[Rfam]
RNA sequence: CGGUCGGCCGGACGGUCGCCGCCCGCCCAGCGGUCAGAGAUUCGAGGGCGGAGAAGCGGGGGCGCACGUCGCUCACGGUCUUCGGUUUCUGAUCUCUGCCCUCUGGGCGGGGGGAGGAAAGUCCGGGCUUCACAGGGCGCGGUGGUGGAUAACGUCCACCCUCGGUAACGGUGCGGGCGUCCCGACUCGCACCGCCAACGGGCGGGAAAGUGCAACAGAAAGUGUACCGCCGCCCGGUUGCGAAAUCGGGCGGUAAGGGUGAAAAGGUGCGGGGCUUCGGCCCUUAAUGUAAGAGCGCACCAGCGGCGGGGUGACCCGCCGGCUCGGCAAACCCCACCGGAAGCAAGGUCAAGCAGAGGACAGGGGCGGCCCGCCCCGUUACGAUCCUCGGGUAGACCGCUCGACCCCGCCGGCAACGGCGGGGCUAGAUAAAUGACCGUCACCCGCCGCAAGGCGGGGGACAAAACCCGGCUUACAGGCCGGCCGACGAA
Numbered sequence: 001c002g003g004u005c006g007g008c009c010g011g012a013c014g015g016u017c018g019c020c021g022c023c024c025g026c027c028c029a030g031c032g033g034u035c036a037g038a039g040a041u042u043c044g045a046g047g048g049c050g051g052a053g054a055a056g057c058g059g060g061g062g063c064g065c066a067c068g069u070c071g072c073u074c075a076c077g078g079u080c081u082u083c084g085g086u087u088u089c090u091g092a093u094c095u096c097u098g099c100c101c102u103c104u105g106g107g108c109g110g111g112g113g114g115a116g117g118a119a120a121g122u123c124c125g126g127g128c129u130u131c132a133c134a135g136g137g138c139g140c141g142g143u144g145g146u147g148g149a150u151a152a153c154g155u156c157c158a159c160c161c162u163c164g165g166u167a168a169c170g171g172u173g174c175g176g177g178c179g180u181c182c183c184g185a186c187u188c189g190c191a192c193c194g195c196c197a198a199c200g201g202g203c204g205g206g207a208a209a210g211u212g213c214a215a216c217a218g219a220a221a222g223u224g225u226a227c228c229g230c231c232g233c234c235c236g237g238u239u240g241c242g243a244a245a246u247c248g249g250g251c252g253g254u255a256a257g258g259g260u261g262a263a264a265a266g267g268u269g270c271g272g273g274g275c276u277u278c279g280g281c282c283c284u285u286a287a288u289g290u291a292a293g294a295g296c297g298c299a300c301c302a303g304c305g306g307c308g309g310g311g312u313g314a315c316c317c318g319c320c321g322g323c324u325c326g327g328c329a330a331a332c333c334c335c336a337c338c339g340g341a342a343g344c345a346a347g348g349u350c351a352a353g354c355a356g357a358g359g360a361c362a363g364g365g366g367c368g369g370c371c372c373g374c375c376c377c378g379u380u381a382c383g384a385u386c387c388u389c390g391g392g393u394a395g396a397c398c399g400c401u402c403g404a405c406c407c408c409g410c411c412g413g414c415a416a417c418g419g420c421g422g423g424g425c426u427a428g429a430u431a432a433a434u435g436a437c438c439g440u441c442a443c444c445c446g447c448c449g450c451a452a453g454g455c456g457g458g459g460g461a462c463a464a465a466a467c468c469c470g471g472c473u474u475a476c477a478g479g480c481c482g483g484c485c486g487a488c489g490a491a
Base pairs, nucleotide, nucleotide: 001486002485003484004483005482006481007480008479009478010476011441012440013439014438015437016436017435019114020113022111023110024109025108026107027106028105029104030103119474120473121472123471124470125469126468127467128343129342130341131340135372136371137370138369140339141338142337143336144335145159146158147157148156149155160204161202162201163200164199205334206333210332211331212328213327227258228257229254230253231252232251233250234249235248236247237246238245239244266301267300268299269298270297271296303323304321305320306319307318308317309316310315347398348397349396350395356389357388358387359386360385363377364376365375366374367373405424406423407422408421409420410419411418412417
Shown here is a 491-nucleotide RNA from Gemmata obscuriglobus, a member of the family "Bacterial RNase P class A".
Rfam's curators write: Ribonuclease P (RNase P) is a ubiquitous endoribonuclease, found in archaea, bacteria and eukarya as well as chloroplasts and mitochondria.
NCBI's taxonomy places the organism under Bacteria, Pseudomonadati, Planctomycetota, Gemmataceae, Gemmata.
It scores 218 bits against the family's covariance model.
The family's RNA type in Rfam is ribozyme.